[Rfam]
RNA sequence: ACACAGGAAAGGAGGUGUUCCGGAAGUGAUUUCUCUUCGGACUCGUGAGGUGGCUGCGGGCUGACGCCCGUUGUCACGCACUUUUCGCAGUGCAUGGCCGGACGUCGGCCAAUACCCAGCAGUCACCGACCCGCAGGCUCGCCGGUAAGUCCGGCCGGCUCCUCUGUGCACGGAGGAACCAGAGCCUGCGGGUUUCUGCGU
Numbered sequence: 001a002c003a004c005a006g007g008a009a010a011g012g013a014g015g016u017g018u019u020c021c022g023g024a025a026g027u028g029a030u031u032u033c034u035c036u037u038c039g040g041a042c043u044c045g046u047g048a049g050g051u052g053g054c055u056g057c058g059g060g061c062u063g064a065c066g067c068c069c070g071u072u073g074u075c076a077c078g079c080a081c082u083u084u085u086c087g088c089a090g091u092g093c094a095u096g097g098c099c100g101g102a103c104g105u106c107g108g109c110c111a112a113u114a115c116c117c118a119g120c121a122g123u124c125a126c127c128g129a130c131c132c133g134c135a136g137g138c139u140c141g142c143c144g145g146u147a148a149g150u151c152c153g154g155c156c157g158g159c160u161c162c163u164c165u166g167u168g169c170a171c172g173g174a175g176g177a178a179c180c181a182g183a184g185c186c187u188g189c190g191g192g193u194u195u196c197u198g199c200g201u
Stems, first nucleotide, its partner, number of pairs: 015057003019053001059110007068101003072096003128194012141159006